[Rfam]
RNA sequence: AGUCGUUCAUCCUAAUUAAAGGACGCAGACCGAGCUAUUCCAGGGAACGGGGGUUUAGC
Number, nucleotide and partner (000 for none) at each position: 001a000002g000003u000004c049005g048006u047007u046008c045009a000010u023011c022012c021013u020014a000015a000016u000017u000018a000019a000020a013021g012022g011023a010024c000025g000026c000027a000028g000029a000030c000031c000032g000033a000034g059035c058036u057037a056038u000039u000040c052041c051042a000043g000044g000045g008046a007047a006048c005049g004050g000051g041052g040053g000054u000055u000056u037057a036058g035059c034
RNA: Glutamine-II riboswitch aptamer